[Rfam]
The record is a 77-nucleotide sequence from Gouania willdenowi, which matches "Small nucleolar RNA SNORD66" in Rfam. It is annotated as a C/D-box small nucleolar RNA. It scores 71 bits against the family's covariance model. Rfam describes the family as follows. snoRNA HBII-142 is part of the C/D family of snoRNAs. The source organism's lineage runs through Eukaryota, Bilateria, Ctenosquamata, Percomorphaceae and Gouania. For this family Rfam cites "RNomics: an experimental approach that identifies 201 candidates for novel, small, non-messenger RNAs in mouse" (Huttenhofer et al., EMBO J, 2001).
RNA sequence: CUUCAUUGAUGAUUGUUCUGUAGUGUCACGGGUCUGGGCCACUGAAUGUCAAUGAUGGUGAUGAGGAACUGAUGAAG
Numbered sequence: 001c002u003u004c005a006u007u008g009a010u011g012a013u014u015g016u017u018c019u020g021u022a023g024u025g026u027c028a029c030g031g032g033u034c035u036g037g038g039c040c041a042c043u044g045a046a047u048g049u050c051a052a053u054g055a056u057g058g059u060g061a062u063g064a065g066g067a068a069c070u071g072a073u074g075a076a077g
Stems, first nucleotide, its partner, number of pairs: 001077004